[Rfam]
Nuclear RNase P: a 493-nucleotide sequence from Maudiozyma saulgeensis. Lineage of the source: Eukaryota > Dikarya > Saccharomycetes > Saccharomycetaceae > Maudiozyma. On this family, see Marquez et al., RNA 2005: "Structural implications of novel diversity in eucaryal RNase P RNA". Rfam classes the family as a ribozyme.
Nucleotides: 493
Stems, first nucleotide, its partner, number of pairs: 001493004007487002013409002026076005041058006085477005091354004197244009245267006275346006293331002411465007
Number, partner (000 for none) and nucleotide at each position: 001493g002492a003491a004490c005000a006000a007487c008486a009000c010000a011000g012000c013409u014408c015000c016000u017000a018000c019000g020000a021000a022000c023000a024000a025000g026076a027075c028074c029073u030072g031000c032000u033000u034000a035000c036000a037000c038000a039000a040000g041058g042057a043056a044055a045054a046053u047000u048000a049000a050000c051000a052000a053046a054045u055044u056043u057042u058041c059000a060000a061000a062000a063000a064000u065000u066000a067000u068000u069000u070000a071000g072030c073029a074028g075027g076026u077000g078000g079000g080000a081000a082000a083000u084000u085477c086476g087475g088474u089473g090000g091354a092353a093352c094351u095000u096000u097000a098000u099000g100000a101000a102000c103000g104000c105000g106000c107000a108000a109000a110000u111000u112000a113000g114000c115000g116000u117000u118000a119000u120000u121000u122000g123000a124000u125000a126000a127000a128000a129000a130000g131000a132000a133000u134000u135000a136000u137000g138000u139000u140000a141000a142000u143000u144000u145000g146000u147000u148000g149000g150000c151000c152000c153000g154000c155000g156000u157000a158000u159000u160000c161000u162000u163000u164000u165000a166000u167000c168000u169000g170000a171000a172000a173000a174000g175000g176000g177000a178000a179000a180000g181000a182000a183000u184000a185000u186000g187000c188000g189000c190000c191000c192000a193000a194000u195000u196000u197244u198243g199242c200241c201240c202239u203238u204237g205236a206000g207000g208000g209000u210000c211000u212000g213000u214000u215000u216000u217000a218000a219000g220000c221000g222000g223000g224000g225000a226000a227000c228000c229000g230000u231000a232000a233000c234000a235000g236205u237204u238203a239202a240201g241200g242199g243198u244197g245267c246266a247265c248264c249263g250262c251000a252000a253000c254000u255000u256000a257000c258000g259000u260000a261000u262250g263249u264248g265247g266246u267245g268000c269000a270000u271000g272000g273000c274000u275346g276345c277344u278343a279342c280341u281000a282000u283000c284000a285000g286000c287000a288000a289000u290000g291000u292000a293331c294330a295000c296000a297000g298000c299000g300000a301000c302000a303000g304000u305000c306000a307000c308000g309000u310000g311000u312000a313000a314000a315000g316000a317000g318000c319000g320000u321000g322000a323000c324000c325000g326000u327000c328000g329000c330294u331293g332000a333000a334000u335000g336000g337000g338000a339000a340000a341280g342279g343278u344277a345276g346275c347000u348000g349000u350000g351094a352093g353092u354091u355000u356000g357000u358000u359000u360000g361000a362000c363000g364000c365000a366000c367000u368000u369000a370000a371000u372000a373000u374000a375000c376000a377000u378000g379000u380000u381000a382000g383000g384000u385000g386000u387000g388000g389000u390000c391000u392000g393000u394000u395000c396000a397000g398000u399000g400000c401000a402000a403000u404000c405000g406000u407000a408014g409013g410000a411465c412464a413463g414462a415461g416460u417459u418000g419000u420000a421000a422000a423000a424000g425000a426000g427000u428000c429000a430000c431000g432000u433000g434000g435000c436000u437000g438000u439000c440000a441000c442000a443000a444000g445000u446000u447000a448000c449000g450000a451000c452000g453000a454000c455000u456000u457000u458000u459417a460416a461415c462414u463413u464412u465411g466000a467000a468000c469000c470000c471000g472000a473089u474088a475087c476086c477085g478000a479000u480000u481000a482000c483000u484000g485000u486008u487007g488000u489000u490004g491003u492002u493001c